The family of this 82-nucleotide RNA sequence from Diceros bicornis is "Small nucleolar RNA SNORD116".
On this family, see Cavaille et al., Proc Natl Acad Sci U S A 2000: "Identification of brain-specific and imprinted small nucleolar RNA genes exhibiting an unusual genomic organization".
The family has 48 seed sequences and 3,260 matches in Rfam 15.1.
The family's RNA type in Rfam is C/D-box small nucleolar RNA.

RNA sequence: GGAUCAAGGAUGACUUCAAAAAUGGGUCUCAUUGGAAUCUGAACAAAAUGAGUGACAAAAUCACUUCUAUGAGGUGAGGUCC
Numbered sequence: 001g002g003a004u005c006a007a008g009g010a011u012g013a014c015u016u017c018a019a020a021a022a023u024g025g026g027u028c029u030c031a032u033u034g035g036a037a038u039c040u041g042a043a044c045a046a047a048a049u050g051a052g053u054g055a056c057a058a059a060a061u062c063a064c065u066u067c068u069a070u071g072a073g074g075u076g077a078g079g080u081c082c
Stems, first nucleotide, its partner, number of pairs: 001082005028052003032046003